[Rfam]
Nucleotides: 053
Stems, first nucleotide, its partner, number of pairs: 030050008
Number, partner (000 for none) and nucleotide at each position: 001000a002000a003000a004000u005000g006000u007000u008000a009000u010000u011000u012000u013000u014000u015000a016000u017000u018000a019000u020000u021000u022000c023000u024000c025000u026000a027000g028000u029000a030050g031049g032048u033047u034046u035045u036044c037043u038000c039000a040000a041000g042000g043037a044036g045035a046034a047033a048032g049031c050030c051000c052000a053000c
Annotation:
Rfam assigns this 53-nucleotide sequence from Oncorhynchus kisutch to the family "U7 small nuclear RNA". Pairs were carried over by alignment from the consensus structure, which was predicted with PFOLD. The match comes from Rfam's covariance-model search (42 bits).